[Rfam]
RNA sequence: CUGGCGCCGGCUUCAAGUAAUCCAGGAUAGGCUGUGGGCUCGGCAGGCAGCCUGUUCUAGGUUACUUGGGUCCGGAGCCUG
Numbered sequence: 001c002u003g004g005c006g007c008c009g010g011c012u013u014c015a016a017g018u019a020a021u022c023c024a025g026g027a028u029a030g031g032c033u034g035u036g037g038g039c040u041c042g043g044c045a046g047g048c049a050g051c052c053u054g055u056u057c058u059a060g061g062u063u064a065c066u067u068g069g070g071u072c073c074g075g076a077g078c079c080u081g
Base pairs, nucleotide, nucleotide: 003079004078005077007075008074009073010072012070014068015067016066017065018064019063020062021061022060024058025057026056027055028054029053030052031051032050033049